[Rfam]
RNA sequence: UCACUUACCUGGAUAGGGUCUUUGAGCUAUCAAGAAGGCUCAUGGCCUAGGUUGGUGAUCUCCAUUGCACACACUGGAGACCUGUCUAAGGUCAGCCCAAGUUGGUCGAACCUACGUGAUAAUUUGUGCUAGUAGGGGCUGCGUUCGCCCUUCCCCUA
Numbered sequence: 001u002c003a004c005u006u007a008c009c010u011g012g013a014u015a016g017g018g019u020c021u022u023u024g025a026g027c028u029a030u031c032a033a034g035a036a037g038g039c040u041c042a043u044g045g046c047c048u049a050g051g052u053u054g055g056u057g058a059u060c061u062c063c064a065u066u067g068c069a070c071a072c073a074c075u076g077g078a079g080a081c082c083u084g085u086c087u088a089a090g091g092u093c094a095g096c097c098c099a100a101g102u103u104g105g106u107c108g109a110a111c112c113u114a115c116g117u118g119a120u121a122a123u124u125u126g127u128g129c130u131a132g133u134a135g136g137g138g139c140u141g142c143g144u145u146c147g148c149c150c151u152u153c154c155c156c157u158a
Base pairs, nucleotide, nucleotide: 013117014116016048017047018046019045020044023042024041025040026039027038049087050086051085053084055081056080061078062077063076089113090112091111092109093108096105097104134157135156136155137154138153141150143148
RNA: U1 spliceosomal RNA
Organism: Artemisia annua